[Rfam]
RNA sequence: UAAUUAUUGUGUAAAGAGGAGUUGCGCGAACAACUCCCCUACAGCACCGUUUACGACGGUGGCAAGUUUUAUAUUAUUUUAGU
Numbered sequence: 001u002a003a004u005u006a007u008u009g010u011g012u013a014a015a016g017a018g019g020a021g022u023u024g025c026g027c028g029a030a031c032a033a034c035u036c037c038c039c040u041a042c043a044g045c046a047c048c049g050u051u052u053a054c055g056a057c058g059g060u061g062g063c064a065a066g067u068u069u070u071a072u073a074u075u076a077u078u079u080u081a082g083u
Base pairs, nucleotide, nucleotide: 023032024031046060047059048058049057050056051055
Shown here is an 83-nucleotide RNA from Enterococcus casseliflavus, a member of the family "RNA anti-toxin A". Lineage of the source: Bacteria > Bacillati > Lactobacillales > Enterococcaceae > Enterococcus casseliflavus. A reference for the family is Fozo et al. (2010), "Abundance of type I toxin-antitoxin systems in bacteria: searches for new candidates and discovery of novel families", Nucleic Acids Res. Rfam classes the family as an antitoxin RNA. It scores 50 bits against the family's covariance model.